[Rfam]
Nucleotides: 052
Stems, first nucleotide, its partner, number of pairs: 006048002009045004014040003018036004022031001
Number, partner (000 for none) and nucleotide at each position: 001000u002000u003000c004000u005000u006048g007047g008000c009045a010044u011043a012042a013000a014040u015039a016038u017000g018036u019035c020034u021033u022031a023000u024000g025000c026000a027000a028000u029000a030000u031022u032000u033021g034020g035019g036018a037000c038016a039015u040014a041000c042012u043011u044010a045009u046000a047007c048006u049000a050000a051000a052000a

The record is a 52-nucleotide RNA from Odobenus rosmarus, which matches "mir-1302 microRNA precursor family" in Rfam. A search with the family's covariance model found it, with a score of 63 bits. The base pairs follow the family's consensus structure, which was predicted with WAR. NCBI's taxonomy places the organism under Eukaryota, Opisthokonta, Tetrapoda, Mammalia, Odobenus rosmarus.